mir-7563 microRNA precursor family: a 76-nucleotide RNA from Ameiurus melas. Rfam 15.1 lists 362 matches to the family in 2 species.

[Rfam]
RNA sequence: ACCGUGUACUUACCGACUGUAUAGUAGGAGAUAUACGUGUAUUUCAGCUACUAUAUAGAGGGUAAGUAUGCGGUUU
Numbered sequence: 001a002c003c004g005u006g007u008a009c010u011u012a013c014c015g016a017c018u019g020u021a022u023a024g025u026a027g028g029a030g031a032u033a034u035a036c037g038u039g040u041a042u043u044u045c046a047g048c049u050a051c052u053a054u055a056u057a058g059a060g061g062g063u064a065a066g067u068a069u070g071c072g073g074u075u076u
Base pairs, nucleotide, nucleotide: 001074002073003072004071005070006069007068008067009066010065011064012063013062014061017058018057019056020055021054022053023052024051025050026049027048030045031044033042034041035040